[Rfam]
RNA sequence: CCAAAACCUGGCCUUCUCUUCCUGGUUCUUCCCUAAGUCAGGAAAAGCUGGGUUGAGAGGACGAAAAAUAAUAAUA
Numbered sequence: 001c002c003a004a005a006a007c008c009u010g011g012c013c014u015u016c017u018c019u020u021c022c023u024g025g026u027u028c029u030u031c032c033c034u035a036a037g038u039c040a041g042g043a044a045a046a047g048c049u050g051g052g053u054u055g056a057g058a059g060g061a062c063g064a065a066a067a068a069u070a071a072u073a074a075u076a
Stems, first nucleotide, its partner, number of pairs: 014059005021052005029044004
RNA: mir-320 microRNA precursor family